[Rfam]
RNA sequence: ACGAAACCGUAUGACUGGCGGAAGUGGAAUUUACCACAGGGAGUACGGUGGUGUUGGUGCGGCAUUGAAAUGCCUGUCAACAUUUGAUUUGCCGACCGCCUGGGCUUUUGUA
Numbered sequence: 001a002c003g004a005a006a007c008c009g010u011a012u013g014a015c016u017g018g019c020g021g022a023a024g025u026g027g028a029a030u031u032u033a034c035c036a037c038a039g040g041g042a043g044u045a046c047g048g049u050g051g052u053g054u055u056g057g058u059g060c061g062g063c064a065u066u067g068a069a070a071u072g073c074c075u076g077u078c079a080a081c082a083u084u085u086g087a088u089u090u091g092c093c094g095a096c097c098g099c100c101u102g103g104g105c106u107u108u109u110g111u112a
Stems, first nucleotide, its partner, number of pairs: 003052001006049007015040002017100005024037004091105003
This 112-nucleotide RNA from Anaerobacterium chartisolvens belongs to the Rfam family "ZMP/ZTP riboswitch aptamer (pfl RNA motif)". Rfam links the family to the GO terms one-carbon metabolic process and regulation of purine nucleotide biosynthetic process. The match comes from Rfam's covariance-model search (50 bits).